[Rfam]
RNA sequence: GCUGGGGAUGCGUCUCCCUGUCACUUCCGGGCUUAGGCAAGAAGUGCAACUAUUGUUGCUAUGUCCUAACACCUAUGUGGAUAGCUCAUCUCCCUUUAGCUUGCAGUCUGCAAGGCUAUCAUGGAGUAAGUCAUGAUAAUCUGGCAGGUAGCGACUGAGGGAUGGCUCAGGCUGGCAACAGAGCAGGCAAGACUCAGCCCUGCAUGCAGAUGGGAGAGCAUGGGCUUGAGUAGGUGUUAGUGACCUCUGGCAGCAUGAAUGUGCACAACUCUGCUUUUU
Numbered sequence: 001g002c003u004g005g006g007g008a009u010g011c012g013u014c015u016c017c018c019u020g021u022c023a024c025u026u027c028c029g030g031g032c033u034u035a036g037g038c039a040a041g042a043a044g045u046g047c048a049a050c051u052a053u054u055g056u057u058g059c060u061a062u063g064u065c066c067u068a069a070c071a072c073c074u075a076u077g078u079g080g081a082u083a084g085c086u087c088a089u090c091u092c093c094c095u096u097u098a099g100c101u102u103g104c105a106g107u108c109u110g111c112a113a114g115g116c117u118a119u120c121a122u123g124g125a126g127u128a129a130g131u132c133a134u135g136a137u138a139a140u141c142u143g144g145c146a147g148g149u150a151g152c153g154a155c156u157g158a159g160g161g162a163u164g165g166c167u168c169a170g171g172c173u174g175g176c177a178a179c180a181g182a183g184c185a186g187g188c189a190a191g192a193c194u195c196a197g198c199c200c201u202g203c204a205u206g207c208a209g210a211u212g213g214g215a216g217a218g219c220a221u222g223g224g225c226u227u228g229a230g231u232a233g234g235u236g237u238u239a240g241u242g243a244c245c246u247c248u249g250g251c252a253g254c255a256u257g258a259a260u261g262u263g264c265a266c267a268a269c270u271c272u273g274c275u276u277u278u279u
Stems, first nucleotide, its partner, number of pairs: 001032003004019005035276005041270001044266004049262002054255007061246001063244003067239010078228001083226007090216002093214003097210001099207002102204005108147004113142003117138008148152001155197005165188003172181003
The record is a 279-nucleotide RNA sequence from Cladocopium goreaui, which matches "Metazoan signal recognition particle RNA" in Rfam. The family has 91 seed sequences and 383,523 matches in Rfam 15.1. The family's consensus secondary structure is taken from published work. Its family is annotated with SRP-dependent cotranslational protein targeting to membrane, signal sequence recognition and signal recognition particle, endoplasmic reticulum targeting in the Gene Ontology. The organism belongs to Cladocopium, within Eukaryota. It scores 103 bits against the family's covariance model. By type it is a non-coding RNA gene. A reference for the family is Wild et al. (2002), "Towards the structure of the mammalian signal recognition particle", Curr Opin Struct Biol.